[Rfam]
RNA sequence: UUAAUCAAGAAAUUCGGUUAGGGAAGCUAACUGGCUGGUUGUUGUUAGAUCUAAUAUUUGGGUCUCCGUCGACACAUCUGCUUACCGAGCUUCCCACAUUC
Numbered sequence: 001u002u003a004a005u006c007a008a009g010a011a012a013u014u015c016g017g018u019u020a021g022g023g024a025a026g027c028u029a030a031c032u033g034g035c036u037g038g039u040u041g042u043u044g045u046u047a048g049a050u051c052u053a054a055u056a057u058u059u060g061g062g063u064c065u066c067c068g069u070c071g072a073c074a075c076a077u078c079u080g081c082u083u084a085c086c087g088a089g090c091u092u093c094c095c096a097c098a099u100u101c
Stems, first nucleotide, its partner, number of pairs: 021095008033082003037078003041073004
Dot-bracket structure: ....................((((((((....(((.(((.((((.........................))))..))).))).....))))))))......
A member of the RNA family "Small nucleolar RNA snoR109" from Arachis hypogaea, 101 nucleotides long. On this family, see Marker et al., Curr Biol 2002: "Experimental RNomics: identification of 140 candidates for small non-messenger RNAs in the plant Arabidopsis thaliana". Its family is annotated with nucleolus and RNA processing in the Gene Ontology.